The record is a 71-nucleotide RNA from Haemaphysalis longicornis, which matches "mir-87 microRNA precursor family" in Rfam. The organism belongs to Haemaphysalis, within Eukaryota. The match comes from Rfam's covariance-model search (50 bits).
RNA sequence: GAGCAAUCUGCCUGAAGGUUUGUCUCAACCUUUCUCAGUUUAGGUGAGCAAAGUUUCAGGUGUGUUGAUCU
Numbered sequence: 001g002a003g004c005a006a007u008c009u010g011c012c013u014g015a016a017g018g019u020u021u022g023u024c025u026c027a028a029c030c031u032u033u034c035u036c037a038g039u040u041u042a043g044g045u046g047a048g049c050a051a052a053g054u055u056u057c058a059g060g061u062g063u064g065u066u067g068a069u070c071u
Base pairs, nucleotide, nucleotide: 002069004067005066006065007064009062010061011060012059013058014057015056017054019052020051021050024048025047026046027045029044030043031042
The base pairs follow the family's consensus structure, which was predicted with RNAalifold.
For this family Rfam cites "Temporal regulation of microRNA expression in Drosophila melanogaster mediated by hormonal signals and broad-Complex gene activity" (Sempere et al., Dev Biol, 2003).